RNA: c-di-AMP riboswitch aptamer (ydaO/yuaA leader)
Organism: Niallia taxi
RNA sequence: UAUCUUAUAUCGCUGAAUCCACUUGGAGCGGGGGACCCAUUUUAAUUGUGAGAUUUCUCACCGGGGUGAAUCCUUAUUAAAGGUAGGGCUACUUCUUGGCCCGAAUCCGGCAGCUAACUUCGUAAGCGUUAAGACAGAAGGU
Dot-bracket structure: ..........((((...(((....)))((((((....(........................)(((.....((((....))))..((((.........))))...))).........)))))).))))..............